[Rfam]
RNA sequence: AAUGCGAUGAUGAUUCAUAAAAGGUUGGGCAGUGGUUGCCUUUUGGUCACCGUGAGCCGUCAAACCAAAAAACGACUUCUCUUUCCACUGAGCAUU
Numbered sequence: 001a002a003u004g005c006g007a008u009g010a011u012g013a014u015u016c017a018u019a020a021a022a023g024g025u026u027g028g029g030c031a032g033u034g035g036u037u038g039c040c041u042u043u044u045g046g047u048c049a050c051c052g053u054g055a056g057c058c059g060u061c062a063a064a065c066c067a068a069a070a071a072a073c074g075a076c077u078u079c080u081c082u083u084u085c086c087a088c089u090g091a092g093c094a095u096u
Stems, first nucleotide, its partner, number of pairs: 001096005
RNA: Small nucleolar RNA Z152/R70/R12/